[Rfam]
RNA sequence: AUUGAAUAGCUGUUGUUUUCUCAUAUAUGCUCAGGAAUAUGGCUUGAGCGUCUCUACCAGGAAACCGUAAAUUUCCCGGCUAUGAGAAAAAACUGUUUGUUU
Number, nucleotide and partner (000 for none) at each position: 001a000002u000003u000004g000005a000006a000007u000008a000009g000010c000011u000012g000013u000014u000015g000016u000017u000018u088019u087020c086021u085022c084023a083024u082025a081026u000027a000028u000029g049030c048031u047032c046033a045034g044035g043036a000037a000038u000039a000040u000041g000042g000043c035044u034045u033046g032047a031048g030049c029050g000051u000052c000053u000054c000055u000056a000057c000058c078059a000060g076061g075062a074063a073064a072065c000066c000067g000068u000069a000070a000071a000072u064073u063074u062075c061076c060077c000078g058079g000080c000081u025082a024083u023084g022085a021086g020087a019088a018089a000090a000091a000092a000093c000094u000095g000096u000097u000098u000099g000100u000101u000102u000

A member of the RNA family "Purine riboswitch aptamer" from Thermoactinomyces sp. AS95, 102 nucleotides long. A search with the family's covariance model found it, with a score of 87 bits. Taxonomically the source falls in Thermoactinomyces (Bacteria, Bacillota, Caryophanales, Thermoactinomycetaceae). On this family, see Mandal et al., Cell 2003: "Riboswitches Control Fundamental Biochemical Pathways in Bacillus subtilis and Other Bacteria". From the family's description: Riboswitches are metabolite binding domains within certain messenger RNAs that serve as precision sensors for their corresponding targets.